[Rfam]
RNA: uup RNA
RNA sequence: GACGAAUUCGCUCUAUGCAAAUGGUACCGAUGAAACAUUGUAUAGAGC
Numbered sequence: 001g002a003c004g005a006a007u008u009c010g011c012u013c014u015a016u017g018c019a020a021a022u023g024g025u026a027c028c029g030a031u032g033a034a035a036c037a038u039u040g041u042a043u044a045g046a047g048c
Stems, first nucleotide, its partner, number of pairs: 011047005017041003